Rfam assigns this 133-nucleotide RNA from Cyprinus carpio to the family "Small nucleolar RNA SNORA9". Its family is annotated with RNA processing and nucleolus in the Gene Ontology. The organism belongs to Cyprinus carpio, within Eukaryota. Clan: SNORA9 clan.

RNA sequence: UUGCAGGCCGUUCAGCGAGGUUGAGUCUGAAGUGACUCUGUCCUUUCCUGUUGAGUCUGCUAGAUGGACAUGGGCUGGUUUGAGACCGUGCUGUUUACCCUCUACAGCAUGGUUAUAGAAACCCCAGACAGGC
Numbered sequence: 001u002u003g004c005a006g007g008c009c010g011u012u013c014a015g016c017g018a019g020g021u022u023g024a025g026u027c028u029g030a031a032g033u034g035a036c037u038c039u040g041u042c043c044u045u046u047c048c049u050g051u052u053g054a055g056u057c058u059g060c061u062a063g064a065u066g067g068a069c070a071u072g073g074g075c076u077g078g079u080u081u082g083a084g085a086c087c088g089u090g091c092u093g094u095u096u097a098c099c100c101u102c103u104a105c106a107g108c109a110u111g112g113u114u115a116u117a118g119a120a121a122c123c124c125c126a127g128a129c130a131g132g133c
Stems, first nucleotide, its partner, number of pairs: 003060006018044003023038005071126004086112006093105002
By type it is an H/ACA-box small nucleolar RNA. Rfam describes the family as follows. ACA9 is a member of the H/ACA class of snoRNA that guide the sites of modification of uridines to pseudouridines.